[Rfam]
RNA sequence: GUAUAUUUCUUAUUAAAACACACAUAUACCGACACUUGUUAUCGGGGUGUUCACACUAUCGUUUUUCGCUAGGGUGAAUCGAUACAAGGGGUAUAUGGAGGCCUAAC
Dot-bracket structure: ......................((((((((....(((((.((((....(((((.....................)))))))))))))).))))))))..........

A member of the RNA family "t44 RNA" from Alteromonas hispanica, 107 nucleotides long. This family consists of a number of bacterial RNA genes of between 135 and 170 bases in length. The t44 gene has been identified in several species of enteric bacteria but homologs have also been identified in Pseudomonas and Coxiella species. The match comes from Rfam's covariance-model search (75 bits). The family's RNA type in Rfam is small RNA. The source organism's lineage runs through Bacteria, Pseudomonadota, Alteromonadales, Alteromonadaceae and Alteromonas. Pairs were carried over by alignment from the consensus structure, which was predicted with LocARNA.